[Rfam]
RNA: Potassium channel RNA editing signal
Organism: Chanos chanos
RNA sequence: GUGGGUUACGGAGACAUGCACCCGGUCACCAUAGGGGGCAAAAUUGUUGGGUCUUUGUGUGCGAUUGCGGGCGUGCUAACCAUCGCCCUGCCCGUCCCCGUAAUUGUGUCUAAU
Numbered sequence: 001g002u003g004g005g006u007u008a009c010g011g012a013g014a015c016a017u018g019c020a021c022c023c024g025g026u027c028a029c030c031a032u033a034g035g036g037g038g039c040a041a042a043a044u045u046g047u048u049g050g051g052u053c054u055u056u057g058u059g060u061g062c063g064a065u066u067g068c069g070g071g072c073g074u075g076c077u078a079a080c081c082a083u084c085g086c087c088c089u090g091c092c093c094g095u096c097c098c099c100g101u102a103a104u105u106g107u108g109u110c111u112a113a114u
Base pairs, nucleotide, nucleotide: 001114002113004111005110007108008107009106010105011104014101015100018097020095021094037077038076039075040074050062